[Rfam]
A member of the RNA family "Small nucleolar RNA SNORA51" from Dipodomys ordii, 131 nucleotides long.
By type it is an H/ACA-box small nucleolar RNA.
Rfam 15.1 lists 2,121 matches to the family in 210 species.
ACA51 is a member of the H/ACA class of snoRNA that guide the sites of modification of uridines to pseudouridines.

RNA sequence: GGGCCUGUGAUGUUUGCCACAGGCUGUGUUCUUACACUACUAGAUAGAAAGAUGGGGAGGAUAAACCUACUCCAUAUACACCUCGGCCCAGACCCUGGUCUUGCUCUGUGUUGUCCAUGGUGGGGACAUUC
Numbered sequence: 001g002g003g004c005c006u007g008u009g010a011u012g013u014u015u016g017c018c019a020c021a022g023g024c025u026g027u028g029u030u031c032u033u034a035c036a037c038u039a040c041u042a043g044a045u046a047g048a049a050a051g052a053u054g055g056g057g058a059g060g061a062u063a064a065a066c067c068u069a070c071u072c073c074a075u076a077u078a079c080a081c082c083u084c085g086g087c088c089c090a091g092a093c094c095c096u097g098g099u100c101u102u103g104c105u106c107u108g109u110g111u112u113g114u115c116c117a118u119g120g121u122g123g124g125g126a127c128a129u130u131c
Base pairs, nucleotide, nucleotide: 004056005055006054007053008052021041022040026037027036028035029034070123071122072120073119074118075117084108085107086106088103090101091100092099093098